[Rfam]
RNA: sucA-II RNA
RNA sequence: CAUUUGCCCGGGCUUGCCCGGGCAAAUGGGCUCUAUGAAAGACGGUCUACCAGACUGUUUUGAAAGUUAUUGACGACCAGCAGGGACUCCUGGGUUAUGCCCAGACUAUCUGCGGGAUCCGUAGUGACUUGCUGAAGUCGCUGCUUGAUGGCUUCAAGAGUCACUGAGUUUCCAUGCCGGUAGUGUUUCCCUUACCAAGGGUGACUA
Numbered sequence: 001c002a003u004u005u006g007c008c009c010g011g012g013c014u015u016g017c018c019c020g021g022g023c024a025a026a027u028g029g030g031c032u033c034u035a036u037g038a039a040a041g042a043c044g045g046u047c048u049a050c051c052a053g054a055c056u057g058u059u060u061u062g063a064a065a066g067u068u069a070u071u072g073a074c075g076a077c078c079a080g081c082a083g084g085g086a087c088u089c090c091u092g093g094g095u096u097a098u099g100c101c102c103a104g105a106c107u108a109u110c111u112g113c114g115g116g117a118u119c120c121g122u123a124g125u126g127a128c129u130u131g132c133u134g135a136a137g138u139c140g141c142u143g144c145u146u147g148a149u150g151g152c153u154u155c156a157a158g159a160g161u162c163a164c165u166g167a168g169u170u171u172c173c174a175u176g177c178c179g180g181u182a183g184u185g186u187u188u189c190c191c192u193u194a195c196c197a198a199g200g201g202u203g204a205c206u207a
Base pairs, nucleotide, nucleotide: 001028002027003026004025005024006023007022008021009020010019011018039061040060041059042058043057044056045055046054047053082192083191084190085189086188087185090104091103092102093101094100106183107182108181109180110179112177113176114175116173120168123165124164125163126162127161128160129159130158136153137152138151139150140149